[Rfam]
RNA sequence: CCCUCCCCCCUCUCAUGUACUCGCUCUCUCUCAUUCUCUCUCUCUCAAAUAAAUAAAUAAAAUCUUUUUUUUUAAAGAUUUUAUUUAUUUAUUUGAGAGAGAGAGAAUGAGAGAGAGCGAGUACAUGAGAGGGGGGAGGG
Numbered sequence: 001c002c003c004u005c006c007c008c009c010c011u012c013u014c015a016u017g018u019a020c021u022c023g024c025u026c027u028c029u030c031u032c033a034u035u036c037u038c039u040c041u042c043u044c045u046c047a048a049a050u051a052a053a054u055a056a057a058u059a060a061a062a063u064c065u066u067u068u069u070u071u072u073u074a075a076a077g078a079u080u081u082u083a084u085u086u087a088u089u090u091a092u093u094u095g096a097g098a099g100a101g102a103g104a105g106a107a108u109g110a111g112a113g114a115g116a117g118c119g120a121g122u123a124c125a126u127g128a129g130a131g132g133g134g135g136g137a138g139g140g
Stems, first nucleotide, its partner, number of pairs: 002139002005136006012129007020121015036105003041100004046095012059082002062079003066075002
RNA: MIR7725 microRNA precursor family
Organism: Neomonachus schauinslandi